[Rfam]
RNA sequence: GGUCAAGGAUGAUUUCUUUGCAUGUAUUAUCUGAACAUGCUGAUGUGCAAUCAGAAGCUCUAGAAUUACACUGACCGG
Numbered sequence: 001g002g003u004c005a006a007g008g009a010u011g012a013u014u015u016c017u018u019u020g021c022a023u024g025u026a027u028u029a030u031c032u033g034a035a036c037a038u039g040c041u042g043a044u045g046u047g048c049a050a051u052c053a054g055a056a057g058c059u060c061u062a063g064a065a066u067u068a069c070a071c072u073g074a075c076c077g078g
Stems, first nucleotide, its partner, number of pairs: 001076004
RNA: Small nucleolar RNA SNORD45
Organism: Cladocopium goreaui